RNA sequence: AUGUUUUUUCAUAGUAUUAGAUUUAAGGUUUACAAAGAUUGGUUGUCGUGAGACAACCAUUUUUUAUU
Numbered sequence: 001a002u003g004u005u006u007u008u009u010c011a012u013a014g015u016a017u018u019a020g021a022u023u024u025a026a027g028g029u030u031u032a033c034a035a036a037g038a039u040u041g042g043u044u045g046u047c048g049u050g051a052g053a054c055a056a057c058c059a060u061u062u063u064u065u066a067u068u
Stems, first nucleotide, its partner, number of pairs: 041058007

A member of the RNA family "Bacteroidetes FopS (family of paralogous sRNAs)" from Coprobacter fastidiosus, 68 nucleotides long. From the family's description: The RNA-binding protein RbpB and BTncRNA_FopS sRNA are involved in the post-transcription regulation of polysaccharide utilisation loci (PUL). FopS sRNAs function as post-transcriptional repressors by binding to the vicinity of the start codon of the first mRNA of target PUL polycistrons, typically corresponding to the cognate SusC homolog, impeding translation of the respective glycan transporter. For this family Rfam cites "The global RNA-binding protein RbpB is a regulator of polysaccharide utilization in Bacteroides thetaiotaomicron" (Ruttiger et al., Nat Commun, 2025). Rfam classes the family as a small RNA. Lineage of the source: Bacteria > Bacteroidota > Bacteroidia > Coprobacter > Coprobacter fastidiosus.